Small nucleolar RNA snoR27: an 88-nucleotide RNA sequence from Elaeis guineensis. The family has 6 seed sequences and 649 matches in Rfam 15.1. Pairs were carried over by alignment from the consensus structure, which was predicted with WAR. It scores 47 bits against the family's covariance model. It is annotated as a C/D-box small nucleolar RNA.
Nucleotides: 088
Base pairs, nucleotide, nucleotide: 002087004085005084006083007082
Number, partner (000 for none) and nucleotide at each position: 001000u002087u003000a004085g005084g006083a007082u008000c009000a010000a011000c012000g013000a014000u015000g016000c017000c018000u019000g020000u021000u022000g023000u024000c025000u026000g027000c028000u029000u030000u031000a032000u033000c034000u035000u036000u037000c038000u039000g040000u041000a042000a043000c044000u045000u046000c047000a048000u049000u050000g051000a052000c053000g054000g055000a056000a057000u058000u059000g060000a061000a062000g063000a064000u065000g066000c067000c068000a069000c070000u071000g072000a073000u074000c075000u076000a077000c078000u079000g080000a081000g082007a083006u084005c085004u086000g087002g088000u